[Rfam]
RNA sequence: AUAAUGAUACUCCCGUACAGCCACGGCUUGAGCGUUAAGAGCGUCGCACGCAAUGGGUACGGCUACAUUGGAUAAUGCAGAGGUGGAAGUCCUGUGG
Numbered sequence: 001a002u003a004a005u006g007a008u009a010c011u012c013c014c015g016u017a018c019a020g021c022c023a024c025g026g027c028u029u030g031a032g033c034g035u036u037a038a039g040a041g042c043g044u045c046g047c048a049c050g051c052a053a054u055g056g057g058u059a060c061g062g063c064u065a066c067a068u069u070g071g072a073u074a075a076u077g078c079a080g081a082g083g084u085g086g087a088a089g090u091c092c093u094g095u096g097g
Stems, first nucleotide, its partner, number of pairs: 012094001013062006063080002067076003081093003